[Rfam]
RNA sequence: ACUCUAGUAUUGACCUCAAUUCACAUGUGUUGAGGUGGAUUGAAGUGUAAAUUUGUUUAAGUUACACCCCAAUCCACCUUAACACAUGUGGAUUGGGAUCAAUAUUAGG
Numbered sequence: 001a002c003u004c005u006a007g008u009a010u011u012g013a014c015c016u017c018a019a020u021u022c023a024c025a026u027g028u029g030u031u032g033a034g035g036u037g038g039a040u041u042g043a044a045g046u047g048u049a050a051a052u053u054u055g056u057u058u059a060a061g062u063u064a065c066a067c068c069c070c071a072a073u074c075c076a077c078c079u080u081a082a083c084a085c086a087u088g089u090g091g092a093u094u095g096g097g098a099u100c101a102a103u104a105u106u107a108g109g
Base pairs, nucleotide, nucleotide: 004108005107006106007105008104009103010102011101012100013099016096017095018094019093020092021091022090023089024088025087026086027085028084029083030082031081032080035077036076037075038074039073040072041071042070045067046066047065

Rfam assigns this 109-nucleotide sequence from Zea mays to the family "MIR5565 microRNA precursor family". It scores 87 bits against the family's covariance model. NCBI's taxonomy places the organism under Eukaryota, Petrosaviidae, Poaceae, Andropogoneae, Zea. Rfam 15.1 lists 3,346 matches to the family in 5 species. Pairs were carried over by alignment from the consensus structure, which was predicted with RNAalifold.